[Rfam]
RNA sequence: UGCUUAUCAAGAGUGGUGGAGGGACUGGCCCUAUGAAACCCGGCAACCUGUAAAUUAAAAUAUAGUAUUUUUAUAUUUAUUUUUACGUGGUGCUAAAUCCUGCAACAAAAUGUUGGGAGAUGAGAG
Numbered sequence: 001u002g003c004u005u006a007u008c009a010a011g012a013g014u015g016g017u018g019g020a021g022g023g024a025c026u027g028g029c030c031c032u033a034u035g036a037a038a039c040c041c042g043g044c045a046a047c048c049u050g051u052a053a054a055u056u057a058a059a060a061u062a063u064a065g066u067a068u069u070u071u072u073a074u075a076u077u078u079a080u081u082u083u084u085a086c087g088u089g090g091u092g093c094u095a096a097a098u099c100c101u102g103c104a105a106c107a108a109a110a111u112g113u114u115g116g117g118a119g120a121u122g123a124g125a126g
Stems, first nucleotide, its partner, number of pairs: 001126001003124006013041001015040003021031003025102001027100002042094004047090002049087006098118001103115005